[Rfam]
RNA sequence: CCCAGCCCUUGCGGGCUGGGCUGGUAUGGGGCGGACCUUUGGUCCU
Numbered sequence: 001c002c003c004a005g006c007c008c009u010u011g012c013g014g015g016c017u018g019g020g021c022u023g024g025u026a027u028g029g030g031g032c033g034g035a036c037c038u039u040u041g042g043u044c045c046u
Stems, first nucleotide, its partner, number of pairs: 001020008033045005
This 46-nucleotide RNA from Luteolibacter ambystomatis belongs to the Rfam family "Acido-Lenti-1 RNA". It is annotated as a small RNA.